[Rfam]
RNA sequence: AAUGAGUGAUGACAAAAUGUUUCGGUCCCAGAUGAUGUGAAAUGAUUCUACUUUCCCAUUUUCUGACAUU
Numbered sequence: 001a002a003u004g005a006g007u008g009a010u011g012a013c014a015a016a017a018u019g020u021u022u023c024g025g026u027c028c029c030a031g032a033u034g035a036u037g038u039g040a041a042a043u044g045a046u047u048c049u050a051c052u053u054u055c056c057c058a059u060u061u062u063c064u065g066a067c068a069u070u
Stems, first nucleotide, its partner, number of pairs: 001070004
Overview:
The record is a 70-nucleotide RNA sequence from Todus mexicanus, which matches "Small nucleolar RNA SNORD73" in Rfam. On this family, see Rebane et al., Gene 1998: "A novel snoRNA (U73) is encoded within the introns of the human and mouse ribosomal protein S3a genes". Gene Ontology terms of the family: nucleolus and RNA processing. NCBI's taxonomy places the organism under Eukaryota, Vertebrata, Aves, Coraciiformes, Todus. The base pairs follow the family's consensus structure, which was predicted with PFOLD. It scores 80 bits against the family's covariance model.